RNA sequence: GGUUGCAAGUUUGAGGCCACCGCAGAAGCGCUCUGGGCGCGGUCCUGUCCGAUUCCAACAAAUCUGCAAAUUCUGCU
Numbered sequence: 001g002g003u004u005g006c007a008a009g010u011u012u013g014a015g016g017c018c019a020c021c022g023c024a025g026a027a028g029c030g031c032u033c034u035g036g037g038c039g040c041g042g043u044c045c046u047g048u049c050c051g052a053u054u055c056c057a058a059c060a061a062a063u064c065u066g067c068a069a070a071u072u073c074u075g076c077u
Stems, first nucleotide, its partner, number of pairs: 013045001015044004022076006028040003049066001051064004
RNA: Mammalian CPEB3 ribozyme
Organism: Alligator mississippiensis